[Rfam]
RNA sequence: UGAGUGUUAUGAUGGUGGGUUUCUGUUUGAACCUUAGUCUAGCUCUGGUCUACUGCUGAGGCUUUGCCUCAGCGG
Numbered sequence: 001u002g003a004g005u006g007u008u009a010u011g012a013u014g015g016u017g018g019g020u021u022u023c024u025g026u027u028u029g030a031a032c033c034u035u036a037g038u039c040u041a042g043c044u045c046u047g048g049u050c051u052a053c054u055g056c057u058g059a060g061g062c063u064u065u066g067c068c069u070c071a072g073c074g075g
Stems, first nucleotide, its partner, number of pairs: 002045004011039003017034006053075009
RNA: L17 ribosomal protein downstream element